[Rfam]
The record is a 373-nucleotide RNA sequence from Halomarina oriensis, which matches "Archaeal RNase P" in Rfam.
Rfam's curators write: Ribonuclease P (RNase P) is a ubiquitous endoribonuclease, found in archaea, bacteria and eukarya as well as chloroplasts and mitochondria. Its best characterised activity is the generation of mature 5'-ends of tRNAs by cleaving the 5'-leader elements of precursor-tRNAs. Cellular RNase Ps are ribonucleoproteins. RNA from bacterial RNase Ps retains its catalytic activity in the absence of the protein subunit, i.e. it is a ribozyme. Isolated eukaryotic and archaeal RNase P RNA has not been shown to retain its catalytic function, but is still essential for the catalytic activity of the holoenzyme. Although the archaeal and eukaryotic holoenzymes have a much greater protein content than the bacterial ones, the RNA cores from all the three lineages are homologous -- helices corresponding to P1, P2, P3, P4, and P10/11 are common to all cellular RNase P RNAs. Yet, there is considerable sequence variation, particularly among the eukaryotic RNAs.
For this family Rfam cites "Ribonuclease P: unity and diversity in a tRNA processing ribozyme" (Frank and Pace, Annu Rev Biochem, 1998).
Gene Ontology terms of the family: tRNA processing, ribonuclease P activity and multimeric ribonuclease P complex.
The match comes from Rfam's covariance-model search (157 bits).
RNA sequence: GGCAGCGAGUGACCGGCCACCGUGGCGUCCGUGCCAGCGGGCACGCGACGCAAACGAGGAAAGUCCCCCCACCGGCCGGGCAGGCGACCGGGCACAAGCCCGGGACGGGAGACCGUCGGCUAUGGAACAGAAACGAGACCCCUCUUCCGGACCGAUGAGGUGCGCGAAGUGAUUCGUGAGAUGACCGAGUGAACCCACCGAGGGCCGUCGUGCGACUUCGCACGCGACGGAAGAGAACGGAUGGAACGGCGAACCCUCGCCGGUGCAAGCCCGCGACGUCGAGGUAGCCCGGCAGACGACCGAUACGGUCGGCCUGUCGCGGGCGCUCAGCCGAAUGCCGGUUCGAACAGAAGGGGGCUUACGGCUCGCAGCC
Numbered sequence: 001g002g003c004a005g006c007g008a009g010u011g012a013c014c015g016g017c018c019a020c021c022g023u024g025g026c027g028u029c030c031g032u033g034c035c036a037g038c039g040g041g042c043a044c045g046c047g048a049c050g051c052a053a054a055c056g057a058g059g060a061a062a063g064u065c066c067c068c069c070c071a072c073c074g075g076c077c078g079g080g081c082a083g084g085c086g087a088c089c090g091g092g093c094a095c096a097a098g099c100c101c102g103g104g105a106c107g108g109g110a111g112a113c114c115g116u117c118g119g120c121u122a123u124g125g126a127a128c129a130g131a132a133a134c135g136a137g138a139c140c141c142c143u144c145u146u147c148c149g150g151a152c153c154g155a156u157g158a159g160g161u162g163c164g165c166g167a168a169g170u171g172a173u174u175c176g177u178g179a180g181a182u183g184a185c186c187g188a189g190u191g192a193a194c195c196c197a198c199c200g201a202g203g204g205c206c207g208u209c210g211u212g213c214g215a216c217u218u219c220g221c222a223c224g225c226g227a228c229g230g231a232a233g234a235g236a237a238c239g240g241a242u243g244g245a246a247c248g249g250c251g252a253a254c255c256c257u258c259g260c261c262g263g264u265g266c267a268a269g270c271c272c273g274c275g276a277c278g279u280c281g282a283g284g285u286a287g288c289c290c291g292g293c294a295g296a297c298g299a300c301c302g303a304u305a306c307g308g309u310c311g312g313c314c315u316g317u318c319g320c321g322g323g324c325g326c327u328c329a330g331c332c333g334a335a336u337g338c339c340g341g342u343u344c345g346a347a348c349a350g351a352a353g354g355g356g357g358c359u360u361a362c363g364g365c366u367c368g369c370a371g372c373c
Stems, first nucleotide, its partner, number of pairs: 001373003005369005010363002012342006021056003061360003065357005070265004083261005088103005104117005118256002123252001125250001139240002142235008269324009